[Rfam]
RNA sequence: AUUUCUAAAUCGCUGAAGUUAAAAAACGCGGGGGAACCACAUAAACAGGAAAAUGUAUUCCUUGGGGUGAAUCCUUUUGAAAAAGGUAGGGCUACUCUCAGCCCGAAUCCGACAGCUAACCUCGUAAGCGUUACAGAGAAGAGAU
Numbered sequence: 001a002u003u004u005c006u007a008a009a010u011c012g013c014u015g016a017a018g019u020u021a022a023a024a025a026a027c028g029c030g031g032g033g034g035a036a037c038c039a040c041a042u043a044a045a046c047a048g049g050a051a052a053a054u055g056u057a058u059u060c061c062u063u064g065g066g067g068u069g070a071a072u073c074c075u076u077u078u079g080a081a082a083a084a085g086g087u088a089g090g091g092c093u094a095c096u097c098u099c100a101g102c103c104c105g106a107a108u109c110c111g112a113c114a115g116c117u118a119a120c121c122u123c124g125u126a127a128g129c130g131u132u133a134c135a136g137a138g139a140a141g142a143g144a145u
Base pairs, nucleotide, nucleotide: 011130012129013128014127018027019026020025028125029124030123031122032121033120038064039063065110066109067108073086074085075084076083089104090103091102092101
This 145-nucleotide sequence from Kurthia sp. 11kri321 belongs to the Rfam family "c-di-AMP riboswitch aptamer (ydaO/yuaA leader)". The source organism's lineage runs through Bacteria, Bacillota, Caryophanales, Caryophanaceae and Kurthia. The pairing is the family consensus, mapped onto this sequence. It scores 115 bits against the family's covariance model. From the family's description: This family represents a conserved RNA structure found upstream of the ydaO and yuaA genes in Bacillus subtilis and related genes in other bacteria.